Rfam assigns this 137-nucleotide RNA from Otolemur garnettii to the family "U4 spliceosomal RNA". The base pairs follow the family's consensus structure, which is taken from published work. It scores 52 bits against the family's covariance model. By type it is a spliceosomal small nuclear RNA. Lineage of the source: Eukaryota > Gnathostomata > Boreoeutheria > Galagidae > Otolemur.

[Rfam]
RNA sequence: AGCUUUGUGCAGUGGCAGUAUUACAGCCAAUGAGGUUUAUCCAAGGUACAACUAUUGCUAAAAAUAAUAAUAAUAAAGCAAAAUUAUCUUUAUUUUUGUAAAAUUUAAAGAGAAAUUAAUGUCAGUGUACGUCUACA
Dot-bracket structure: ....................((...(((.....((.....))..)))..))................................((.(.((.(.(((....))).).)).).))............((((....))))
Numbered sequence: 001a002g003c004u005u006u007g008u009g010c011a012g013u014g015g016c017a018g019u020a021u022u023a024c025a026g027c028c029a030a031u032g033a034g035g036u037u038u039a040u041c042c043a044a045g046g047u048a049c050a051a052c053u054a055u056u057g058c059u060a061a062a063a064a065u066a067a068u069a070a071u072a073a074u075a076a077a078g079c080a081a082a083a084u085u086a087u088c089u090u091u092a093u094u095u096u097u098g099u100a101a102a103a104u105u106u107a108a109a110g111a112g113a114a115a116u117u118a119a120u121g122u123c124a125g126u127g128u129a130c131g132u133c134u135a136c137a
Stems, first nucleotide, its partner, number of pairs: 021051002026047003034042002084113002087110001089108002092105001094103003126137004